Source information
A member of the RNA family "Small nucleolar RNA SNORA41", 128 nucleotides long. The family's consensus secondary structure was predicted with PFOLD. Rfam 15.1 lists 676 matches to the family in 522 species. Rfam classes the family as an H/ACA-box small nucleolar RNA. About the family: ACA41 is a member of the H/ACA class of snoRNA that guide the sites of modification of uridines to pseudouridines. On this family, see Huttenhofer et al., EMBO J 2001: "RNomics: an experimental approach that identifies 201 candidates for novel, small, non-messenger RNAs in mouse".

RNA sequence: UUCCACCACUAUUGGUCUGCAGCUCUUCUUAUGGUAGCAGUUGUUGCAUUUCUCUGUGGGAAAGAAAAGAGGAUUAAACACCUCUUUCUUAGCAAAACAGAGAGUAGGCAUAUGUGUGACAGACACAA
Numbered sequence: 001u002u003c004c005a006c007c008a009c010u011a012u013u014g015g016u017c018u019g020c021a022g023c024u025c026u027u028c029u030u031a032u033g034g035u036a037g038c039a040g041u042u043g044u045u046g047c048a049u050u051u052c053u054c055u056g057u058g059g060g061a062a063a064g065a066a067a068a069g070a071g072g073a074u075u076a077a078a079c080a081c082c083u084c085u086u087u088c089u090u091a092g093c094a095a096a097a098c099a100g101a102g103a104g105u106a107g108g109c110a111u112a113u114g115u116g117u118g119a120c121a122g123a124c125a126c127a128a
Stems, first nucleotide, its partner, number of pairs: 003059004017046001019044006068117001070115001072113001081108003084104006